This 114-nucleotide RNA from Medicago truncatula belongs to the Rfam family "MIR2593 microRNA precursor family". NCBI's taxonomy places the organism under Eukaryota, eudicotyledons, fabids, Trifolieae, Medicago. Rfam links the family to the GO terms miRNA-mediated post-transcriptional gene silencing and RISC complex. Pairs were carried over by alignment from the consensus structure, which was predicted with RNAalifold.
RNA sequence: UUAUAAGCAAAAAUUCUCUUUUUAGAUUCAUUCAAUAAAUGAUGUAUGUGAUCUUUAUAUAAACCACAUACAUCAUUUAUUGAAUGAACCUAAGAAGUGAAUUUUUGCUUAUAA
Numbered sequence: 001u002u003a004u005a006a007g008c009a010a011a012a013a014u015u016c017u018c019u020u021u022u023u024a025g026a027u028u029c030a031u032u033c034a035a036u037a038a039a040u041g042a043u044g045u046a047u048g049u050g051a052u053c054u055u056u057a058u059a060u061a062a063a064c065c066a067c068a069u070a071c072a073u074c075a076u077u078u079a080u081u082g083a084a085u086g087a088a089c090c091u092a093a094g095a096a097g098u099g100a101a102u103u104u105u106u107g108c109u110u111a112u113a114a
Base pairs, nucleotide, nucleotide: 002113003112004111005110006109007108009106010105011104012103013102015100016099018097019096020095021094022093023092024091025090027088028087029086030085031084032083033082034081035080036079037078038077039076040075041074042073043072044071049066050065052063